RNA sequence: GGUAUGGGGACCCGCGAACUCCCCACGAGGCGCCAGCUAAAGAUCGCGUUCCAGAUCAAUCCUGAAUGUCCUGUUCAAGGAAGGAACGCCCAUG
Numbered sequence: 001g002g003u004a005u006g007g008g009g010a011c012c013c014g015c016g017a018a019c020u021c022c023c024c025a026c027g028a029g030g031c032g033c034c035a036g037c038u039a040a041a042g043a044u045c046g047c048g049u050u051c052c053a054g055a056u057c058a059a060u061c062c063u064g065a066a067u068g069u070c071c072u073g074u075u076c077a078a079g080g081a082a083g084g085a086a087c088g089c090c091c092a093u094g
Base pairs, nucleotide, nucleotide: 005025006024007023008022009021010020046089047088048087049086050085051084